The record is an 89-nucleotide sequence from Pasteurellaceae bacterium RH1A, which matches "t44 RNA" in Rfam. The family's consensus secondary structure was predicted with LocARNA. The literature on the family includes a 2002 paper in Nucleic Acids Res by Tjaden et al., "Transcriptome analysis of Escherichia coli using high-density oligonucleotide probe arrays". It scores 60 bits against the family's covariance model. From the family's description: This family consists of a number of bacterial RNA genes of between 135 and 170 bases in length.

Nucleotides: 089
Stems, first nucleotide, its partner, number of pairs: 023079008036070009049061005
Number, partner (000 for none) and nucleotide at each position: 001000a002000c003000u004000u005000u006000u007000a008000u009000u010000u011000u012000a013000c014000g015000a016000a017000a018000a019000c020000a021000c022000a023079u024078a025077c026076a027075u028074a029073c030072u031000g032000u033000u034000g035000a036070g037069a038068a039067u040066a041065a042064u043063c044062g045000g046000g047000g048000u049061g050060c051059u052058g053057a054000a055000u056000u057053u058052c059051a060050g061049u062044c063043g064042g065041u066040u067039a068038u069037u070036u071000g072030g073029g074028u075027a076026u077025g078024u079023a080000g081000a082000g083000g084000c085000u086000a087000a088000a089000c